[Rfam]
RNA sequence: AUCACUUCUCAACCUUUUGGCUAAGAUCAAGUGUAGUAUCUCUUCUUAUCAGUUUAAUACCCAAUACGUCCUCUAUCCGAGGGCAAUAUAUUACAUCAAUUUUUGGAGCAGGGAGAUAGAACAGGAGCUUGCUCCAUCCACUCCACACAUUGACUUGGUGCUGCAGUACCUCCAGGAAUGGCACACUGCUC
Number, nucleotide and partner (000 for none) at each position: 001a000002u000003c000004a000005c000006u000007u026008c025009u024010c000011a022012a000013c020014c019015u000016u000017u000018u000019g014020g013021c000022u011023a000024a009025g008026a007027u000028c000029a000030a000031g000032u000033g000034u000035a000036g000037u000038a000039u000040c000041u000042c000043u000044u000045c000046u000047u066048a065049u064050c000051a000052g061053u000054u000055u000056a000057a000058u000059a000060c000061c052062c000063a000064a049065u048066a047067c000068g084069u083070c082071c081072u080073c079074u000075a000076u000077c000078c000079g073080a072081g071082g070083g069084c068085a000086a000087u000088a000089u000090a000091u000092u000093a000094c000095a000096u000097c000098a000099a000100u000101u000102u000103u000104u000105g000106g000107a000108g000109c000110a000111g000112g144113g143114a142115g141116a000117u000118a000119g137120a000121a000122c000123a000124g135125g134126a133127g132128c000129u000130u000131g000132c127133u126134c125135c124136a000137u119138c000139c000140a000141c115142u114143c113144c112145a000146c000147a000148c000149a000150u181151u180152g179153a000154c176155u175156u174157g173158g172159u000160g000161c000162u000163g000164c000165a000166g000167u000168a000169c000170c000171u000172c158173c157174a156175g155176g154177a000178a000179u152180g151181g150182c000183a000184c000185a000186c000187u000188g000189c000190u000191c000
U2 spliceosomal RNA: a 191-nucleotide RNA from Callithrix jacchus. NCBI's taxonomy places the organism under Eukaryota, Sarcopterygii, Boreoeutheria, Cebidae, Callithrix. By type it is a spliceosomal small nuclear RNA. On this family, see Zwieb, Nucleic Acids Res 1997: "The uRNA database". From the family's description: U2 is a small nuclear RNA (snRNA) component of the spliceosome (involved in pre-mRNA splicing).